[Rfam]
RNA sequence: AACUAUGACUCAACCCUGAGAGGGUCGUAAGAGGGGAUGCUCACAGCAUUCCUUUAGUGAUUUCGAUCGCAACACUGUCAAACUGCGGGGAGUUCCUAAAGCUCAGACUACCGCCUCGGCGCUGAAAAGCCCCAAAGGCACCAAGGUUAGCAGCCUUGGGUACGGUAACAACGUCUGCAGAUGCUACAAUGGAUGAUCCGCAGCCAAGCUCUAAGGACCUCUGGGUUUACGAGCGGGGUUCAACGACUAGACGGCAGUGGACCUGGAAACGGGUUUAAGAUAUAGUCUGCACCAGGGAAAAAGCCCUAG
Numbered sequence: 001a002a003c004u005a006u007g008a009c010u011c012a013a014c015c016c017u018g019a020g021a022g023g024g025u026c027g028u029a030a031g032a033g034g035g036g037a038u039g040c041u042c043a044c045a046g047c048a049u050u051c052c053u054u055u056a057g058u059g060a061u062u063u064c065g066a067u068c069g070c071a072a073c074a075c076u077g078u079c080a081a082a083c084u085g086c087g088g089g090g091a092g093u094u095c096c097u098a099a100a101g102c103u104c105a106g107a108c109u110a111c112c113g114c115c116u117c118g119g120c121g122c123u124g125a126a127a128a129g130c131c132c133c134a135a136a137g138g139c140a141c142c143a144a145g146g147u148u149a150g151c152a153g154c155c156u157u158g159g160g161u162a163c164g165g166u167a168a169c170a171a172c173g174u175c176u177g178c179a180g181a182u183g184c185u186a187c188a189a190u191g192g193a194u195g196a197u198c199c200g201c202a203g204c205c206a207a208g209c210u211c212u213a214a215g216g217a218c219c220u221c222u223g224g225g226u227u228u229a230c231g232a233g234c235g236g237g238g239u240u241c242a243a244c245g246a247c248u249a250g251a252c253g254g255c256a257g258u259g260g261a262c263c264u265g266g267a268a269a270c271g272g273g274u275u276u277a278a279g280a281u282a283u284a285g286u287c288u289g290c291a292c293c294a295g296g297g298a299a300a301a302a303g304c305c306c307u308a309g
Base pairs, nucleotide, nucleotide: 002025003024004023006021073259074258075257076256077255079253084202085201086200087199088198089197094193095192096191203239204238208234209233210232211231216227217226218225219224243288245287246286247285248284249283261274262273263272264271265270294307295306296305297304